[Rfam]
RNA sequence: UGCCAUAAGGUCAGUAUUACCCCUUAUGGCAUGAAUGUCGCAUGUCGCA
Numbered sequence: 001u002g003c004c005a006u007a008a009g010g011u012c013a014g015u016a017u018u019a020c021c022c023c024u025u026a027u028g029g030c031a032u033g034a035a036u037g038u039c040g041c042a043u044g045u046c047g048c049a
Stems, first nucleotide, its partner, number of pairs: 001031010
Notes:
A member of the RNA family "ssNA-helicase RNA", 49 nucleotides long. The sequence is in the family's curated seed alignment.